The family of this 69-nucleotide RNA sequence from Gilvimarinus sp. DA14 is "int-alpA RNA".
By type it is a small RNA.
Rfam's curators write: Acidobacteria (1 example), Planctomycetes (1 example), Proteobacteria.
RNA sequence: CCCAAACCUAGCCCGACGGGGCGAAAGAGGCAGCACCCACUGCCUUUGGUUUGGGCUCUAAUUUGGGGG
Numbered sequence: 001c002c003c004a005a006a007c008c009u010a011g012c013c014c015g016a017c018g019g020g021g022c023g024a025a026a027g028a029g030g031c032a033g034c035a036c037c038c039a040c041u042g043c044c045u046u047u048g049g050u051u052u053g054g055g056c057u058c059u060a061a062u063u064u065g066g067g068g069g
Stems, first nucleotide, its partner, number of pairs: 001055008011022004028045005036069003040065001